[Rfam]
RNA sequence: AUACCUUUGGGAUGAACUGGUCCCUGAUAUGUGAUCACCAUCUUCUUCACUUUGUCAGCUAUCUUGGUUCUAAUCUUAGCUGAUCAUUAAGGAUGGGACAUUA
Numbered sequence: 001a002u003a004c005c006u007u008u009g010g011g012a013u014g015a016a017c018u019g020g021u022c023c024c025u026g027a028u029a030u031g032u033g034a035u036c037a038c039c040a041u042c043u044u045c046u047u048c049a050c051u052u053u054g055u056c057a058g059c060u061a062u063c064u065u066g067g068u069u070c071u072a073a074u075c076u077u078a079g080c081u082g083a084u085c086a087u088u089a090a091g092g093a094u095g096g097g098a099c100a101u102u103a
Base pairs, nucleotide, nucleotide: 038096039095040094041093042092054084055083056082057081058080059079060078061077
A member of the RNA family "Small nucleolar RNA snoR99" from Phoenix dactylifera, 103 nucleotides long.
The source organism's lineage runs through Eukaryota, Embryophyta, Coryphoideae, Phoeniceae and Phoenix.
The family's RNA type in Rfam is H/ACA-box small nucleolar RNA.
The match comes from Rfam's covariance-model search (73 bits).
The literature on the family includes a 2002 paper in Curr Biol by Marker et al., "Experimental RNomics: identification of 140 candidates for small non-messenger RNAs in the plant Arabidopsis thaliana".